[Rfam]
RNA sequence: ACUCAACUUCGGGGCAGGGUGAAAUUCCCUACCGGCGGUGAUGAUGCAUAUCGUUUCAAGGGAUGUUGUCCUGAAACGGCGUCUCAGUCCGUGACCCGGGCGCGCAGCUUUUCACGCGCGUGCGGUGGACCUGGUGUAAAUCCGGGACCGACAGUAUAGUCUGGAUGGGAGAAGGAGAGG
Numbered sequence: 001a002c003u004c005a006a007c008u009u010c011g012g013g014g015c016a017g018g019g020u021g022a023a024a025u026u027c028c029c030u031a032c033c034g035g036c037g038g039u040g041a042u043g044a045u046g047c048a049u050a051u052c053g054u055u056u057c058a059a060g061g062g063a064u065g066u067u068g069u070c071c072u073g074a075a076a077c078g079g080c081g082u083c084u085c086a087g088u089c090c091g092u093g094a095c096c097c098g099g100g101c102g103c104g105c106a107g108c109u110u111u112u113c114a115c116g117c118g119c120g121u122g123c124g125g126u127g128g129a130c131c132u133g134g135u136g137u138a139a140a141u142c143c144g145g146g147a148c149c150g151a152c153a154g155u156a157u158a159g160u161c162u163g164g165a166u167g168g169g170a171g172a173a174g175g176a177g178a179g180g
Base pairs, nucleotide, nucleotide: 003178004177007174008173009172010171017029018028019027031160032159033150034149035092036091037090038089096125097124130146131145132144133143134142152163153162154161
Background
Rfam assigns this 180-nucleotide sequence from Paenibacillus dendrobii to the family "FMN riboswitch aptamer (RFN element)". NCBI's taxonomy places the organism under Bacteria, Bacillota, Bacilli, Paenibacillaceae, Paenibacillus.